The record is a 116-nucleotide RNA from Geosporobacter ferrireducens, which matches "FMN riboswitch aptamer (RFN element)" in Rfam. Its family is annotated with FMN binding in the Gene Ontology. The match comes from Rfam's covariance-model search (124 bits).
[Rfam]
RNA sequence: AAUAUCCUUCAGGGCAGGGUGAAAUUCCCGACCGGCGGUUAUAGUCCGCGAGCCGAUUAGGCAGACUUGGUGUAAUUCCAAGACCGACAGUACAGUCUGGAUGGAAGAAGGAGAAG
Dot-bracket structure: ..(.((((((......(((.......))).[[((((((.....[[))))..(((.....)))...(((((.......)))))]])).(((....]]))).......)))))).)..